RNA sequence: AAAUGAGGUAGAGGUCGCAAACAUUAAAAGUAAUAUAGCAGAGAUGGAGAGCAUCAGUGAAGCUAUAUGAAAGGAAUGGUUGCCGAAGUGUUAUUUUACUCAUCUUAAAAUAAUGCUGGGGCUGUUUUCGAUAAGGAACAGAACUGUCACAUGUGUGAGCAUGUGUUGAGCUAUCUUUCGA
Number, nucleotide and partner (000 for none) at each position: 001a000002a000003a000004u000005g000006a176007g175008g174009u173010a172011g171012a000013g000014g000015u000016c000017g083018c082019a081020a080021a000022c078023a077024u076025u075026a000027a000028a000029a000030g000031u000032a000033a068034u067035a066036u065037a064038g063039c062040a000041g000042a000043g000044a000045u000046g000047g000048a000049g000050a000051g000052c000053a000054u000055c000056a000057g000058u000059g000060a000061a000062g039063c038064u037065a036066u035067a034068u033069g000070a000071a000072a000073g000074g000075a025076a024077u023078g022079g000080u020081u019082g018083c017084c000085g000086a000087a117088g116089u115090g114091u113092u112093a111094u110095u109096u108097u107098a106099c000100u000101c000102a000103u000104c000105u000106u098107a097108a096109a095110a094111u093112a092113a091114u090115g089116c088117u087118g145119g144120g000121g000122c141123u140124g139125u138126u137127u136128u135129c000130g000131a000132u000133a000134a000135g128136g127137a126138a125139c124140a123141g122142a000143a000144c119145u118146g000147u000148c165149a164150c163151a162152u161153g160154u000155g000156u000157g000158a000159g000160c153161a152162u151163g150164u149165g148166u000167u000168g000169a000170g000171c011172u010173a009174u008175c007176u006177u000178u000179c000180g000181a000

The family of this 181-nucleotide RNA sequence from Lysinibacillus sp. 2017 is "Lysine riboswitch aptamer". About the family: Riboswitches are metabolite binding domains within certain messenger RNAs that serve as precision sensors for their corresponding targets. Allosteric rearrangement of mRNA structure is mediated by ligand binding, and this results in modulation of gene expression. This family includes riboswitches that sense lysine in a number of genes involved in lysine metabolism, including lysC.